[Rfam]
Description:
Rfam assigns this 88-nucleotide sequence to the family "ATPC RNA motif". The sequence is in the family's curated seed alignment. By type it is a non-coding RNA gene.
RNA sequence: UUCGCCUUUUCGAGGCGAUCUGCUAAACACAUCCGCGCGCAGGUCCGGCGCUCGAUCGGGCCCACUCCAGAAGGAGUGUCCCAGCGCG
Numbered sequence: 001u002u003c004g005c006c007u008u009u010u011c012g013a014g015g016c017g018a019u020c021u022g023c024u025a026a027a028c029a030c031a032u033c034c035g036c037g038c039g040c041a042g043g044u045c046c047g048g049c050g051c052u053c054g055a056u057c058g059g060g061c062c063c064a065c066u067c068c069a070g071a072a073g074g075a076g077u078g079u080c081c082c083a084g085c086g087c088g
Base pairs, nucleotide, nucleotide: 002018003017004016005015006014036088037087038086039085040084042062043061044060045059046058047057048056063078064077065076066075067074068073